Shown here is a 379-nucleotide RNA from Brevibacterium rongguiense, a member of the family "Bacterial RNase P class A".
[Rfam]
RNA sequence: ACAGGUCGCCAGACGGUCGCGUCGGCUCCAUGAGCCGCCGAGGAACGUCCGGGCUCCGCAGAGCACGGUGGUGGGCAACACCCACCCGGGGCAACCCGCGGGACAGUGCCACAGAGAACAGACCGCCCGCCCGGGCAACCGGGCGGGUAAGGGUGAAACGGCGGUGUAAGAGACCACCAGGGUUCCGGGUGACCGGAAUCGCUCGGCAAACCCCACCGGGAGCAAGAUCAGACAGACGGUGCUUGAGGGCUGCUCGCCCAAGCCGUCGGGUGGAUCGCUCGAGGGCGCCGGCAACGGCGCUCCUAGAUAGAUGACCGUCGCGUCCGCACCCGCAAGGGCGCAGGCGCCACAGAACCCGGCGUAUCGGCGGCCUGUCCCC
Numbered sequence: 001a002c003a004g005g006u007c008g009c010c011a012g013a014c015g016g017u018c019g020c021g022u023c024g025g026c027u028c029c030a031u032g033a034g035c036c037g038c039c040g041a042g043g044a045a046c047g048u049c050c051g052g053g054c055u056c057c058g059c060a061g062a063g064c065a066c067g068g069u070g071g072u073g074g075g076c077a078a079c080a081c082c083c084a085c086c087c088g089g090g091g092c093a094a095c096c097c098g099c100g101g102g103a104c105a106g107u108g109c110c111a112c113a114g115a116g117a118a119c120a121g122a123c124c125g126c127c128c129g130c131c132c133g134g135g136c137a138a139c140c141g142g143g144c145g146g147g148u149a150a151g152g153g154u155g156a157a158a159c160g161g162c163g164g165u166g167u168a169a170g171a172g173a174c175c176a177c178c179a180g181g182g183u184u185c186c187g188g189g190u191g192a193c194c195g196g197a198a199u200c201g202c203u204c205g206g207c208a209a210a211c212c213c214c215a216c217c218g219g220g221a222g223c224a225a226g227a228u229c230a231g232a233c234a235g236a237c238g239g240u241g242c243u244u245g246a247g248g249g250c251u252g253c254u255c256g257c258c259c260a261a262g263c264c265g266u267c268g269g270g271u272g273g274a275u276c277g278c279u280c281g282a283g284g285g286c287g288c289c290g291g292c293a294a295c296g297g298c299g300c301u302c303c304u305a306g307a308u309a310g311a312u313g314a315c316c317g318u319c320g321c322g323u324c325c326g327c328a329c330c331c332g333c334a335a336g337g338g339c340g341c342a343g344g345c346g347c348c349a350c351a352g353a354a355c356c357c358g359g360c361g362u363a364u365c366g367g368c369g370g371c372c373u374g375u376c377c378c379c
Stems, first nucleotide, its partner, number of pairs: 001375010011364001012319007020040002023037006045362003049359005054222004061255004066218005071085005086100001087098004101213002106211002108207003123152002125148009160178002163175003180202001181200008226276004235267006247259004283302008

Record summary
Rfam classes the family as a ribozyme. The organism belongs to Brevibacterium, within Bacteria. From the family's description: Ribonuclease P (RNase P) is a ubiquitous endoribonuclease, found in archaea, bacteria and eukarya as well as chloroplasts and mitochondria. The base pairs follow the family's consensus structure, which is taken from published work. Its family is annotated with tRNA processing, dimeric ribonuclease P complex and ribonuclease P activity in the Gene Ontology.